RNA sequence: UCAAUAUCAUUUUCAGUGCAGAAUAUAUUUA
Numbered sequence: 001u002c003a004a005u006a007u008c009a010u011u012u013u014c015a016g017u018g019c020a021g022a023a024u025a026u027a028u029u030u031a
Stems, first nucleotide, its partner, number of pairs: 001031001003029005009024005014018001
RNA: Iron response element II